[Rfam]
RNA sequence: UUUUAAAGAAAAUCAGAAGGAUAACUAUUGAUUUCUUUGUCAAAUUCGAUCUACUAAACAGAUAUUCCAGAUAAAA
Dot-bracket structure: (((((..................................................................)))))
Shown here is a 76-nucleotide sequence from Stegodyphus mimosarum, a member of the family "Small nucleolar RNA R12". NCBI's taxonomy places the organism under Eukaryota, Eumetazoa, Chelicerata, Eresidae, Stegodyphus. It is annotated as a C/D-box small nucleolar RNA. A reference for the family is Chen et al. (2003), "The high diversity of snoRNAs in plants: identification and comparative study of 120 snoRNA genes from Oryza sativa", Nucleic Acids Res. snoR12 is a C/D box small nucleolar RNA, which acts as a methylation guide for 25S ribosomal RNA in plants. snoR12 has been alternatively named snoZ44 in Arabidopsis and snoZ131 in rice.